[Rfam]
Rfam assigns this 202-nucleotide RNA sequence from Dicentrarchus labrax to the family "Small nucleolar RNA SNORA53". The base pairs follow the family's consensus structure, which was predicted with RNAalifold. Gene Ontology terms of the family: RNA processing and nucleolus. The family has 28 seed sequences and 1,090 matches in Rfam 15.1. The organism belongs to Dicentrarchus, within Eukaryota. Rfam's curators write: The snoRNA ACA53 belongs to the H/ACA family of pseudouridylation guide snoRNAs.

RNA sequence: AACACGCUCCUUAGAUCCACCUCUGGAGGGCGCUGUGCUCUGAGCACAGCUCCUCAGCAGCUUUCUGGCUGUACAGUUGGAGGUGCUUGAGUCAUUGGCGUGUGAGAGCAGUCUACCUGUCCCCCAGCCCACCGUAACACUGGCAACCCUGUCCUCUACAGACGGGGAGCUCCCAGUGCUACAAGUCUGGGGGACGGACACA
Numbered sequence: 001a002a003c004a005c006g007c008u009c010c011u012u013a014g015a016u017c018c019a020c021c022u023c024u025g026g027a028g029g030g031c032g033c034u035g036u037g038c039u040c041u042g043a044g045c046a047c048a049g050c051u052c053c054u055c056a057g058c059a060g061c062u063u064u065c066u067g068g069c070u071g072u073a074c075a076g077u078u079g080g081a082g083g084u085g086c087u088u089g090a091g092u093c094a095u096u097g098g099c100g101u102g103u104g105a106g107a108g109c110a111g112u113c114u115a116c117c118u119g120u121c122c123c124c125c126a127g128c129c130c131a132c133c134g135u136a137a138c139a140c141u142g143g144c145a146a147c148c149c150u151g152u153c154c155u156c157u158a159c160a161g162a163c164g165g166g167g168a169g170c171u172c173c174c175a176g177u178g179c180u181a182c183a184a185g186u187c188u189g190g191g192g193g194a195c196g197g198a199c200a201c202a
Stems, first nucleotide, its partner, number of pairs: 002103007010091005018085008026055005032050003037045002057072006117197005124190001126188002129185001136180001138178006151170001153165002